[Rfam]
RNA sequence: AUGGAAUCAGUUUUCAAAGUGAAAAAUAAAUCCAUUAAUGGGGUUUUCAGUACAGCACUUGAAGAUGGAAAGAGGAGAACACUCAGCUCAAGCCUCACUUUCCUAUCGAGAUUUCAACAGUUUGUCUGAGUUUUGAGGCCAAUUUAGCUUUUGCAGGGUGUCAAAGAAGAAGAAGAACUCACUUUCAAUUUUCAAAGCAAAAGGUUUCUAUGGCUUUUAAAGCUUUACCAAACCGGCAAGUCACAAAACGGCAAUGGACUCAUUCAUGAUGAGUCUU
Numbered sequence: 001a002u003g004g005a006a007u008c009a010g011u012u013u014u015c016a017a018a019g020u021g022a023a024a025a026a027u028a029a030a031u032c033c034a035u036u037a038a039u040g041g042g043g044u045u046u047u048c049a050g051u052a053c054a055g056c057a058c059u060u061g062a063a064g065a066u067g068g069a070a071a072g073a074g075g076a077g078a079a080c081a082c083u084c085a086g087c088u089c090a091a092g093c094c095u096c097a098c099u100u101u102c103c104u105a106u107c108g109a110g111a112u113u114u115c116a117a118c119a120g121u122u123u124g125u126c127u128g129a130g131u132u133u134u135g136a137g138g139c140c141a142a143u144u145u146a147g148c149u150u151u152u153g154c155a156g157g158g159u160g161u162c163a164a165a166g167a168a169g170a171a172g173a174a175g176a177a178c179u180c181a182c183u184u185u186c187a188a189u190u191u192u193c194a195a196a197g198c199a200a201a202a203g204g205u206u207u208c209u210a211u212g213g214c215u216u217u218u219a220a221a222g223c224u225u226u227a228c229c230a231a232a233c234c235g236g237c238a239a240g241u242c243a244c245a246a247a248a249c250g251g252c253a254a255u256g257g258a259c260u261c262a263u264u265c266a267u268g269a270u271g272a273g274u275c276u277u
Stems, first nucleotide, its partner, number of pairs: 067106001069104001120233005141217001257275005
RNA: Early nodulin 40